[Rfam]
RNA sequence: UUGCGCAAUUGAUUGUAUGUUUAGCAAUCUUAGCAAUCUUUCGUCGCGGUCGUGGGCGUAAUCUUUACCUCAGUUUCACGGCCCGGACGACACGUCCACCCAGCUCGCCCAAUCAGGGGAGCUGGCGCCGCCGACCUUACCAGGUCGUCACGGCACCCGGGUCCGCACUGCCCAACCAGGCGGGCGACGAAAGCGGCGACAGAAUUGCCAGCACAGGACAUCUACGAAAGGGGAGGCCGAGAGGUCUCCCC
Number, nucleotide and partner (000 for none) at each position: 001u012002u011003g010004c000005g000006c000007a000008a000009u000010u003011g002012a001013u000014u000015g000016u000017a000018u000019g000020u000021u000022u000023a000024g000025c000026a000027a000028u000029c000030u000031u000032a000033g000034c000035a000036a000037u000038c000039u000040u000041u000042c000043g057044u056045c055046g000047c000048g000049g000050u000051c000052g000053u000054g000055g045056g044057c043058g000059u000060a000061a000062u000063c000064u000065u000066u000067a000068c000069c000070u000071c000072a000073g000074u000075u000076u192077c000078a000079c189080g188081g162082c161083c160084c159085g097086g096087a095088c094089g000090a000091c000092a000093c000094g088095u087096c086097c085098a000099c000100c125101c124102a123103g122104c121105u000106c000107g000108c117109c116110c000111a000112a000113u000114c000115a000116g109117g108118g000119g000120a000121g104122c103123u102124g101125g100126c000127g154128c153129c152130g151131c000132c000133g146134a145135c144136c143137u142138u000139a000140c000141c000142a137143g136144g135145u134146c133147g000148u000149c000150a000151c130152g129153g128154c127155a000156c000157c000158c000159g084160g083161g082162u081163c000164c186165g185166c184167a000168c183169u182170g181171c180172c179173c000174a000175a000176c000177c000178a000179g172180g171181c170182g169183g168184g166185c165186g164187a000188c080189g079190a000191a000192a076193g212194c211195g209196g208197c207198g206199a205200c000201a000202g000203a000204a000205u199206u198207g197208c196209c195210a000211g194212c193213a000214c000215a000216g000217g000218a000219c000220a000221u000222c000223u000224a000225c000226g000227a000228a000229a000230g251231g250232g249233g248234a000235g246236g245237c244238c243239g000240a000241g000242a000243g238244g237245u236246c235247u000248c233249c232250c231251c230
This 251-nucleotide RNA sequence from Pseudomonas fulva belongs to the Rfam family "Pseudomonas sRNA P24". Pairs were carried over by alignment from the consensus structure, which was predicted with RNAalifold. A reference for the family is Livny et al. (2006), "Identification of 17 Pseudomonas aeruginosa sRNAs and prediction of sRNA-encoding genes in 10 diverse pathogens using the bioinformatic tool sRNAPredict2", Nucleic Acids Res. The match comes from Rfam's covariance-model search (153 bits). Rfam describes the family as follows. This small RNA (sRNA) was computationally identified in the genome of the opportunistic pathogen Pseudomonas aeruginosa and its expression verified by Northern blot analysis. P24 is conserved across several Pseudomonas species and in Azotobacter vinelandii. It appears to be consistently located between a hypothetical protein gene and a transcriptional regulator gene (AsnC family) in the genomes of all these species. P24 has a predicted Rho independent terminator at the 3' end but the function of P24 is unknown.